[Rfam]
RNA: mir-551 microRNA precursor family
Nucleotides: 074
Stems, first nucleotide, its partner, number of pairs: 002073002006069002009066004014061001016059002021054004028049004
Number, partner (000 for none) and nucleotide at each position: 001000u002073g003072a004000c005000c006069c007068u008000g009066g010065g011064a012063a013000g014061c015000c016059a017058g018000a019000g020000u021054g022053g023052g024051u025000g026000a027000g028049g029048c030047c031046u032000g033000u034000c035000u036000g037000a038000c039000c040000c041000u042000u043000u044000c045000u046031a047030g048029g049028u050000g051024a052023c053022c054021c055000a056000u057000u058017c059016u060000u061014g062000g063012u064011u065010u066009c067000a068007a069006g070000u071000a072003u073002u074000g